[Rfam]
RNA sequence: CGAUCCGGCGUGCUUAGACGCAUAAGGACCCAAAGAACCGGCAGGAAGAACCAACCGACCCGACCCCACCGGUCCGCGUCGCUCGGUCGGGUGAACUGUGCCAACUGAGCUGGAUUAGCAGCCGGUUGGCGGGCAUAUGCUCGCCCCGACAACCGCAGACAUGAGACGGCCCCCGACGGGACUGCAAUCCCGGCCGAGGGCCUGACCAACUAGGAAGUAAGCGGCUUCCCA
Number, nucleotide and partner (000 for none) at each position: 001c000002g000003a000004u000005c000006c000007g210008g000009c000010g207011u000012g000013c000014u000015u000016a000017g074018a073019c072020g000021c000022a000023u000024a000025a000026g000027g000028a000029c000030c000031c000032a000033a000034a000035g000036a000037a000038c000039c000040g000041g000042c000043a000044g000045g000046a000047a000048g000049a000050a000051c000052c000053a000054a000055c000056c000057g000058a000059c000060c000061c000062g000063a000064c000065c000066c000067c000068a000069c000070c000071g000072g019073u018074c017075c000076g000077c000078g000079u094080c093081g092082c091083u090084c089085g000086g000087u000088c000089g084090g083091g082092u081093g080094a079095a000096c000097u000098g000099u000100g000101c000102c000103a000104a000105c000106u000107g000108a000109g145110c000111u143112g142113g141114a000115u000116u000117a000118g000119c000120a000121g000122c000123c000124g000125g000126u000127u000128g000129g000130c000131g000132g000133g000134c000135a000136u000137a000138u000139g000140c000141u113142c112143g111144c000145c109146c000147c000148g000149a000150c000151a000152a000153c000154c000155g000156c000157a000158g000159a000160c000161a000162u000163g000164a000165g000166a000167c000168g202169g201170c200171c199172c198173c000174c196175g195176a000177c000178g191179g190180g189181a188182c000183u000184g000185c000186a000187a000188u181189c180190c179191c178192g000193g000194c000195c175196g174197a000198g172199g171200g170201c169202c168203u000204g000205a000206c000207c010208a000209a000210c007211u000212a000213g229214g228215a227216a226217g225218u000219a000220a000221g000222c000223g000224g000225c217226u216227u215228c214229c213230c000231a000
RNA: Streptomyces sRNA 4677